Shown here is a 362-nucleotide sequence from Kiritimatiella glycovorans, a member of the family "Bacterial RNase P class A". It scores 236 bits against the family's covariance model. Ribonuclease P (RNase P) is a ubiquitous endoribonuclease, found in archaea, bacteria and eukarya as well as chloroplasts and mitochondria. Its best characterised activity is the generation of mature 5'-ends of tRNAs by cleaving the 5'-leader elements of precursor-tRNAs. Taxonomically the source falls in Kiritimatiella (Bacteria, Kiritimatiellota, Kiritimatiellales, Kiritimatiellaceae).
[Rfam]
RNA sequence: GCGGUGAGGUUCGGUCGCUUUCCGGCAGUGCCGGGGAGAGGAAAGUCCGGACUCCGCAGGGCAGGACGUCCCGUGGUUAACGCGGGAGGCCCUUCGCAAGAACGAAGGGUACGGAAAGUGCCGCAGAAAACAGACCGCCCGCCGAAGCUUUAGCUGAGACGGGUAAGGGUGAAAAGGUGGGGUAAGAGCCCACCGCCCCGAGGGUGACCGAGGGGGCAGGGUAAACCCCGUCCGGAGCAAGAUCGAAUAGGGGACGAGAGGCGGCCCGUCUCGUCAGGAGUCCCGGGUAGAUCGCACUAGAUAAAUGACCGAUAACCGCUUUAUGCGGGAGACAGAAUCCGGCUUACCGCCUCACCUUUUUU
Number, nucleotide and partner (000 for none) at each position: 001g358002c000003g356004g355005u354006g353007a352008g351009g350010u349011u000012c311013g310014g309015u308016c307017g000018c038019u037020u036021u035022c034023c033024g032025g031026c030027a000028g000029u000030g026031c025032c024033g023034g022035g021036g020037a019038g018039a000040g000041g000042a000043a345044a344045g343046u000047c342048c341049g340050g339051a338052c237053u236054c235055c234056g000057c000058a000059g271060g270061g269062c268063a000064g233065g232066a231067c230068g229069u087070c086071c085072c084073g083074u082075g081076g000077u000078u000079a000080a000081c075082g074083c073084g072085g071086g070087a069088g112089g110090c109091c108092c107093u106094u105095c104096g103097c000098a000099a000100g000101a000102a000103c096104g095105a094106a093107g092108g091109g090110u089111a000112c088113g228114g227115a000116a000117a000118g226119u225120g222121c221122c220123g000124c000125a000126g000127a000128a000129a000130a000131c000132a000133g000134a000135c168136c167137g164138c163139c162140c161141g160142c000143c158144g000145a000146a000147g000148c000149u000150u000151u000152a000153g000154c000155u000156g000157a000158g143159a000160c141161g140162g139163g138164u137165a000166a000167g136168g135169g000170u000171g000172a000173a000174a000175a000176g194177g193178u192179g191180g190181g189182g000183u000184a000185a000186g000187a000188g000189c181190c180191c179192a178193c177194c176195g217196c215197c214198c213199c212200g000201a000202g209203g208204g000205u000206g000207a000208c203209c202210g000211a000212g199213g198214g197215g196216g000217c195218a000219g000220g122221g121222u120223a000224a000225a119226c118227c114228c113229c068230g067231u066232c065233c064234g055235g054236a053237g052238c000239a000240a000241g293242a292243u291244c290245g000246a000247a000248u000249a000250g000251g284252g283253g282254a281255c280256g000257a000258g000259a000260g000261g000262c277263g000264g275265c000266c273267c000268g062269u061270c060271u059272c000273g266274u000275c264276a000277g262278g000279a000280g255281u254282c253283c252284c251285g000286g000287g000288u000289a000290g244291a243292u242293c241294g000295c000296a000297c000298u000299a000300g000301a000302u000303a000304a000305a000306u000307g016308a015309c014310c013311g012312a000313u000314a000315a000316c000317c000318g000319c000320u000321u000322u000323a000324u000325g000326c000327g000328g000329g000330a000331g000332a000333c000334a000335g000336a000337a000338u051339c050340c049341g048342g047343c045344u044345u043346a000347c000348c000349g010350c009351c008352u007353c006354a005355c004356c003357u000358u001359u000360u000361u000362u000